The record is an 83-nucleotide sequence from Acipenser ruthenus, which matches "Small nucleolar RNA SNORD100" in Rfam. The match comes from Rfam's covariance-model search (63 bits). The family is grouped with related families in Rfam's "SNORD100 clan". Rfam classes the family as a C/D-box small nucleolar RNA.
RNA sequence: AGUAUCAAUGAUGAUGACGUGGCUCCCUCUACUAAAAUCUGUGAGGAAGAAUACUUUUGUUACCCAGUUUUAUCUGAGAUACA
Numbered sequence: 001a002g003u004a005u006c007a008a009u010g011a012u013g014a015u016g017a018c019g020u021g022g023c024u025c026c027c028u029c030u031a032c033u034a035a036a037a038u039c040u041g042u043g044a045g046g047a048a049g050a051a052u053a054c055u056u057u058u059g060u061u062a063c064c065c066a067g068u069u070u071u072a073u074c075u076g077a078g079a080u081a082c083a
Stems, first nucleotide, its partner, number of pairs: 002082005